[Rfam]
RNA sequence: UUGGAAAUUACAGGGCAACAUCUCUAUUGGCAGGUUGCUACUGCUUAGACACACGAAUUAAUUAUGUGUGUUCCUAUGAGUGUGCAUUCUGCCAAAGGAGAUUUGCCCGGCAAUUCUUCU
Numbered sequence: 001u002u003g004g005a006a007a008u009u010a011c012a013g014g015g016c017a018a019c020a021u022c023u024c025u026a027u028u029g030g031c032a033g034g035u036u037g038c039u040a041c042u043g044c045u046u047a048g049a050c051a052c053a054c055g056a057a058u059u060a061a062u063u064a065u066g067u068g069u070g071u072u073c074c075u076a077u078g079a080g081u082g083u084g085c086a087u088u089c090u091g092c093c094a095a096a097g098g099a100g101a102u103u104u105g106c107c108c109g110g111c112a113a114u115u116c117u118u119c120u
Base pairs, nucleotide, nucleotide: 006115007114008113009112011110013108014107015106016105017104018103022100023099024098025097028094029093030092031091032090033089034088036086037085038084

Rfam assigns this 120-nucleotide sequence from Corchorus capsularis to the family "mir-399 microRNA precursor family". From the family's description: mir-399 was identified in both Arabidopsis thaliana and Oryza sativa computationally and was later experimentally verified. mir-399 is thought to target mRNAs coding for a phosphatase transporter. The mature sequence is excised from the 3' arm of the hairpin. Gene Ontology terms of the family: miRNA-mediated post-transcriptional gene silencing and RISC complex. The literature on the family includes a 2004 paper in Mol Cell by Jones-Rhoades and Bartel, "Computational Identification of Plant MicroRNAs and Their Targets, Including a Stress-Induced miRNA".